[Rfam]
RNA: mir-9229 microRNA precursor family
Organism: Myotis brandtii
RNA sequence: GAGACACCCUUAUGGGGCAGUACUUGCUUAAGUGGGGCUUUGGCGCUCACUGACUCUGUCCCCUGAGUGUGUCUCU
Numbered sequence: 001g002a003g004a005c006a007c008c009c010u011u012a013u014g015g016g017g018c019a020g021u022a023c024u025u026g027c028u029u030a031a032g033u034g035g036g037g038c039u040u041u042g043g044c045g046c047u048c049a050c051u052g053a054c055u056c057u058g059u060c061c062c063c064u065g066a067g068u069g070u071g072u073c074u075c076u
Stems, first nucleotide, its partner, number of pairs: 001075007009067004014062006022055001029053001031051006037044002